[Rfam]
Rfam assigns this 168-nucleotide RNA from Triticum turgidum to the family "small nucleolar RNA snoR143". The family's consensus secondary structure was predicted with RNAalifold. Rfam 15.1 lists 660 matches to the family in 212 species. A search with the family's covariance model found it, with a score of 105 bits. The family's RNA type in Rfam is H/ACA-box small nucleolar RNA. Gene Ontology terms of the family: nucleolus and RNA processing.

RNA sequence: UUGCACAUGUGUUGUAUUGUCCUACUUACUUGCCGUGCUAGUAGGAUAUAACACUGGUGCAGAAAGGAAAAGCUGCUCCUUGGAGCAGCAGCGGCCAGACAACCGUAGAGAUAGGUCCACAGAUGAAUGGCUAAUCUGCUGCUUGUCUACUAAUUCUAUCUCAUAUUU
Number, nucleotide and partner (000 for none) at each position: 001u000002u061003g060004c059005a058006c057007a000008u053009g052010u051011g000012u050013u000014g049015u048016a047017u046018u045019g000020u043021c000022c041023u040024a039025c000026u037027u000028a000029c000030u000031u000032g000033c000034c000035g000036u000037g026038c000039u024040a023041g022042u000043a020044g000045g018046a017047u016048a015049u014050a012051a010052c009053a008054c000055u000056g000057g006058u005059g004060c003061a002062g000063a000064a000065a000066g000067g000068a000069a000070a000071a000072g000073c000074u000075g000076c000077u000078c000079c000080u000081u000082g000083g000084a000085g000086c000087a000088g000089c000090a000091g000092c000093g000094g000095c000096c000097a000098g000099a000100c000101a000102a000103c000104c000105g000106u000107a000108g162109a161110g160111a159112u158113a157114g156115g155116u000117c000118c000119a000120c000121a000122g000123a000124u000125g000126a144127a143128u000129g000130g000131c000132u000133a000134a000135u000136c000137u000138g000139c000140u000141g000142c000143u127144u126145g000146u000147c000148u000149a000150c000151u000152a000153a000154u000155u115156c114157u113158a112159u111160c110161u109162c108163a000164u000165a000166u000167u000168u000